[Rfam]
Nucleotides: 139
Base pairs, nucleotide, nucleotide: 004047018045019044020043021042024039025038026037027036075127076126092114093113094112095111096110097109
Number, partner (000 for none) and nucleotide at each position: 001000u002000u003000a004047a005000a006000a007000g008000u009000a010000a011000u012000g013000g014000u015000c016000a017000u018045a019044c020043u021042g022000u023000g024039c025038u026037c027036u028000u029000u030000u031000c032000c033000c034000a035000u036027g037026g038025g039024g040000c041000c042021u043020a044019g045018u046000g047004u048000a049000c050000a051000g052000u053000g054000g055000c056000u057000a058000c059000a060000a061000a062000g063000a064000g065000u066000a067000g068000c069000c070000u071000c072000c073000u074000u075127g076126g077000c078000a079000a080000u081000g082000u083000a084000u085000g086000a087000u088000u089000a090000c091000a092114u093113u094112g095111c096110c097109u098000g099000u100000u101000g102000a103000u104000u105000g106000u107000a108000u109097g110096g111095g112094u113093g114092g115000g116000c117000c118000c119000u120000a121000a122000a123000u124000g125000a126076c127075c128000u129000u130000u131000a132000a133000g134000a135000c136000a137000u138000c139000u

Source information
This 139-nucleotide sequence from Suricata suricatta belongs to the Rfam family "Small nucleolar RNA SNORA70". By type it is an H/ACA-box small nucleolar RNA. On this family, see Charette and Gray, IUBMB Life 2000: "Pseudouridine in RNA: what, where, how, and why". Its family is annotated with nucleolus and RNA processing in the Gene Ontology.